[Rfam]
RNA sequence: AUGGAGACAUGGCGUAAAGCCAGAAGGAGACGCUAAGUACUUGAACUGAUUUGCAUCUCAUUUU
Numbered sequence: 001a002u003g004g005a006g007a008c009a010u011g012g013c014g015u016a017a018a019g020c021c022a023g024a025a026g027g028a029g030a031c032g033c034u035a036a037g038u039a040c041u042u043g044a045a046c047u048g049a050u051u052u053g054c055a056u057c058u059c060a061u062u063u064u
Stems, first nucleotide, its partner, number of pairs: 004059004010022004023054001025052002
RNA: ctgf/hcs24 CAESAR
Organism: Tychaedon coryphoeus